[Rfam]
RNA: Small nucleolar RNA R64/Z200 family
Organism: Coptis chinensis
RNA sequence: AUUCUGUGGUGAUGAAUCAUGAAAUAUUCACAUGUCAGACUUCAGAGGUUUCUCAUAAGAAAUCAGUGAGAAGAUAAUUCAUUUUCCUGAGCAGAAA
Number, nucleotide and partner (000 for none) at each position: 001a000002u096003u095004c094005u093006g092007u091008g000009g000010u000011g000012a000013u000014g000015a000016a000017u000018c000019a000020u000021g000022a000023a000024a000025u000026a000027u000028u000029c000030a000031c000032a000033u000034g000035u000036c000037a000038g000039a000040c000041u000042u000043c000044a000045g000046a000047g064048g063049u062050u061051u060052c059053u000054c000055a000056u000057a000058a000059g052060a051061a050062a049063u048064c047065a000066g000067u000068g000069a000070g000071a000072a000073g000074a000075u000076a000077a000078u000079u000080c000081a000082u000083u000084u000085u000086c000087c000088u000089g000090a000091g007092c006093a005094g004095a003096a002097a000